Shown here is a 51-nucleotide RNA from Paracidovorax citrulli, a member of the family "nhaA-I RNA". Pairs were carried over by alignment from the consensus structure, which is taken from published work. Acidobacteria, Alphaproteobacteria, Betaproteobacteria and Gammaproteobacteria, Verrucomicrobia, cand. division NC10.
RNA sequence: GGGUGCCGUCACAUGGGGUGCGGCAGGUGUAGCGAAGGUCGGGCCGCCUCG
Numbered sequence: 001g002g003g004u005g006c007c008g009u010c011a012c013a014u015g016g017g018g019u020g021c022g023g024c025a026g027g028u029g030u031a032g033c034g035a036a037g038g039u040c041g042g043g044c045c046g047c048c049u050c051g
Stems, first nucleotide, its partner, number of pairs: 005024004010020003033051003037048003